[Rfam]
Shown here is a 153-nucleotide RNA sequence from Paenibacillus spiritus, a member of the family "Ribosomal protein L10 leader".
Pairs were carried over by alignment from the consensus structure, which was predicted with CMfinder.
A reference for the family is Zengel and Lindahl (1994), "Diverse mechanisms for regulating ribosomal protein synthesis in Escherichia coli", Prog Nucleic Acid Res Mol Biol.

RNA sequence: AAAAUUCGAAUAUGCUUACCGUAGACAGUAGGUGCUGCGAAGCUUAAUUUCCUACCGAGGUGUUGUGAUAGAAAUGAGAGGCGCUGCCGCCGUACGGCAGCCUUCGAUUUUAUCAAGCCUUCGUGAUUCUGCGGAGGCUUUUCUAAUGCCUGC
Numbered sequence: 001a002a003a004a005u006u007c008g009a010a011u012a013u014g015c016u017u018a019c020c021g022u023a024g025a026c027a028g029u030a031g032g033u034g035c036u037g038c039g040a041a042g043c044u045u046a047a048u049u050u051c052c053u054a055c056c057g058a059g060g061u062g063u064u065g066u067g068a069u070a071g072a073a074a075u076g077a078g079a080g081g082c083g084c085u086g087c088c089g090c091c092g093u094a095c096g097g098c099a100g101c102c103u104u105c106g107a108u109u110u111u112a113u114c115a116a117g118c119c120u121u122c123g124u125g126a127u128u129c130u131g132c133g134g135a136g137g138c139u140u141u142u143c144u145a146a147u148g149c150c151u152g153c
Stems, first nucleotide, its partner, number of pairs: 028055005034043003117138009